[Rfam]
RNA sequence: GUCUUUUUUUAAGGCUGAUGCAGUGCUCUCAGAAGUUAACAUGGAAGGGUAAAAUAAGUAUCUCUAACACACAGAGAAGAGAUUGUCAGAUUCUUCUGUGGAUCUUGUUUAGAUACAUAGCU
Numbered sequence: 001g002u003c004u005u006u007u008u009u010u011a012a013g014g015c016u017g018a019u020g021c022a023g024u025g026c027u028c029u030c031a032g033a034a035g036u037u038a039a040c041a042u043g044g045a046a047g048g049g050u051a052a053a054a055u056a057a058g059u060a061u062c063u064c065u066a067a068c069a070c071a072c073a074g075a076g077a078a079g080a081g082a083u084u085g086u087c088a089g090a091u092u093c094u095u096c097u098g099u100g101g102a103u104c105u106u107g108u109u110u111a112g113a114u115a116c117a118u119a120g121c122u
Stems, first nucleotide, its partner, number of pairs: 002051001004049007014040001016038002019035001021032001058116001060114004072100002075097003079093003083090002
The record is a 122-nucleotide RNA from Cavia porcellus, which matches "Small nucleolar RNA SNORA26" in Rfam.
Rfam links the family to the GO terms RNA processing and nucleolus.
The family's RNA type in Rfam is H/ACA-box small nucleolar RNA.
The literature on the family includes a 2001 paper in EMBO J by Huttenhofer et al., "RNomics: an experimental approach that identifies 201 candidates for novel, small, non-messenger RNAs in mouse".
From the family's description: The snoRNA HBI-6 belong to the H/ACA family of snoRNAs, guiding the pseudouridylation of position U4522 if the 28S rRNA. HBI-6 is the human orthologue of mouse MBI-6 snoRNA.
The match comes from Rfam's covariance-model search (84 bits).
Clan: SNORA27 clan.